[Rfam]
RNA sequence: UGAGAGGCUGGCGCGGGCAGACGCCUUGCCAACCCGGUCAGGUCCGGAAGGAAGCAGCCGCAGCAUUUUCCGUCUGGGUCGCUGUCCAGUCUCUCACCU
Numbered sequence: 001u002g003a004g005a006g007g008c009u010g011g012c013g014c015g016g017g018c019a020g021a022c023g024c025c026u027u028g029c030c031a032a033c034c035c036g037g038u039c040a041g042g043u044c045c046g047g048a049a050g051g052a053a054g055c056a057g058c059c060g061c062a063g064c065a066u067u068u069u070c071c072g073u074c075u076g077g078g079u080c081g082c083u084g085u086c087c088a089g090u091c092u093c094u095c096a097c098c099u
Base pairs, nucleotide, nucleotide: 004093005092006091007090008089010086011085012084013082014081015080018076019075020074021073022072023071027065028064029063035060036059037058038057043052044051045050
This 99-nucleotide RNA from Roseinatronobacter bogoriensis belongs to the Rfam family "Bacterial small signal recognition particle RNA". Rfam classes the family as a non-coding RNA gene. For this family Rfam cites "SRPDB: Signal Recognition Particle Database" (Rosenblad et al., Nucleic Acids Res, 2003). Lineage of the source: Bacteria > Pseudomonadati > Alphaproteobacteria > Paracoccaceae > Roseinatronobacter bogoriensis.